[Rfam]
RNA sequence: AAAAUUUAAGGUUAGGUGAGGCUCCUAUAUAGAGAUACGCUGCUGCCCGGAAACAUCGAGAGAUGCCAAUGGGUCAACAAGUACUACCGAAUUAAGGUUUUAUUUAACGUAGCUGGACUUUGUCCUCAUGCUAUAUAGUGCUAAAACUCAACGAAAAUUAUUUUUG
Numbered sequence: 001a002a003a004a005u006u007u008a009a010g011g012u013u014a015g016g017u018g019a020g021g022c023u024c025c026u027a028u029a030u031a032g033a034g035a036u037a038c039g040c041u042g043c044u045g046c047c048c049g050g051a052a053a054c055a056u057c058g059a060g061a062g063a064u065g066c067c068a069a070u071g072g073g074u075c076a077a078c079a080a081g082u083a084c085u086a087c088c089g090a091a092u093u094a095a096g097g098u099u100u101u102a103u104u105u106a107a108c109g110u111a112g113c114u115g116g117a118c119u120u121u122g123u124c125c126u127c128a129u130g131c132u133a134u135a136u137a138g139u140g141c142u143a144a145a146a147c148u149c150a151a152c153g154a155a156a157a158u159u160a161u162u163u164u165u166g
Stems, first nucleotide, its partner, number of pairs: 007160003011152002013095001015148003020142003025138008039113005045074005054065004080104004086098003115125003

Rfam assigns this 166-nucleotide sequence from Clostridium sp. HMP27 to the family "M-box riboswitch aptamer (ykoK leader)". NCBI's taxonomy places the organism under Bacteria, Bacillati, Bacillota, Eubacteriales, Clostridium. M-box riboswitch, also know as ykoK leader is described as a metaloregulatory RNA that sense divalent metals and function as a genetic control element of genes related to divalent metal transport in bacteria. It was first reported upstream of the B.subtilis ykoK gene and genes with related functions in other bacteria. The base pairs follow the family's consensus structure.